This 106-nucleotide RNA from Coptis chinensis belongs to the Rfam family "Plant small nucleolar RNA R71". Pairs were carried over by alignment from the consensus structure, which was predicted with PFOLD. For this family Rfam cites "Plant snoRNAs: functional evolution and new modes of gene expression" (Brown et al., Trends Plant Sci, 2003). Rfam 15.1 lists 278,378 matches to the family in 216 species. A search with the family's covariance model found it, with a score of 44 bits. Lineage of the source: Eukaryota > Viridiplantae > Streptophytina > Ranunculales > Coptis.
RNA sequence: AGAUUAUGAUGUGGACAUUCUACUAGAAAAUCAGUGAAACGAUUCCAAGCCUCAAAAAAGGAUUCUUGAGGCUUUUGUCGAAAGAAAUGUAUAUUUUCUAGCAUCU
Numbered sequence: 001a002g003a004u005u006a007u008g009a010u011g012u013g014g015a016c017a018u019u020c021u022a023c024u025a026g027a028a029a030a031u032c033a034g035u036g037a038a039a040c041g042a043u044u045c046c047a048a049g050c051c052u053c054a055a056a057a058a059a060g061g062a063u064u065c066u067u068g069a070g071g072c073u074u075u076u077g078u079c080g081a082a083a084g085a086a087a088u089g090u091a092u093a094u095u096u097u098c099u100a101g102c103a104u105c106u
Base pairs, nucleotide, nucleotide: 001106003104004103005100006099057074058073